[Rfam]
RNA sequence: CUUGAGUAUCACUUGAGCCCAGGAGUUUGAGACUAGCCUGGGCAACAAAGUGAGACCCCUG
Numbered sequence: 001c002u003u004g005a006g007u008a009u010c011a012c013u014u015g016a017g018c019c020c021a022g023g024a025g026u027u028u029g030a031g032a033c034u035a036g037c038c039u040g041g042g043c044a045a046c047a048a049a050g051u052g053a054g055a056c057c058c059c060u061g
Stems, first nucleotide, its partner, number of pairs: 007055001009053006017043007027036003
About this RNA
Shown here is a 61-nucleotide sequence from Nomascus leucogenys, a member of the family "mir-1285 microRNA precursor family". The family's consensus secondary structure was predicted with RNAalifold. Taxonomically the source falls in Nomascus (Eukaryota, Metazoa, Bilateria, Sarcopterygii). The match comes from Rfam's covariance-model search (57 bits).